Lysine riboswitch aptamer: a 178-nucleotide RNA from Clostridium carboxidivorans.
[Rfam]
RNA sequence: AACUGAGAUAGAGGCGCAAAAUUUAAGAGUAGCACUGCAGAGGUAAGUACUAUGAAGCAGUUUGAAAGGAAAUUUUGCCGAAACUUAUAGCAGAUGCUUUAAUGCUAUAUAGUUGGGCUUUGUAUAGAAUAUGUACAGGACUGUCACAAAGUUUAUUUUGUGGAGAGCUAUCAUUCAU
Numbered sequence: 001a002a003c004u005g006a007g008a009u010a011g012a013g014g015c016g017c018a019a020a021a022u023u024u025a026a027g028a029g030u031a032g033c034a035c036u037g038c039a040g041a042g043g044u045a046a047g048u049a050c051u052a053u054g055a056a057g058c059a060g061u062u063u064g065a066a067a068g069g070a071a072a073u074u075u076u077g078c079c080g081a082a083a084c085u086u087a088u089a090g091c092a093g094a095u096g097c098u099u100u101a102a103u104g105c106u107a108u109a110u111a112g113u114u115g116g117g118c119u120u121u122g123u124a125u126a127g128a129a130u131a132u133g134u135a136c137a138g139g140a141c142u143g144u145c146a147c148a149a150a151g152u153u154u155a156u157u158u159u160g161u162g163g164a165g166a167g168c169u170a171u172c173a174u175u176c177a178u
Stems, first nucleotide, its partner, number of pairs: 007172005016078009032063001034061005082114004086109007115142002118139002121137006144163007
Annotation
NCBI's taxonomy places the organism under Bacteria, Bacillati, Clostridia, Eubacteriales, Clostridium carboxidivorans.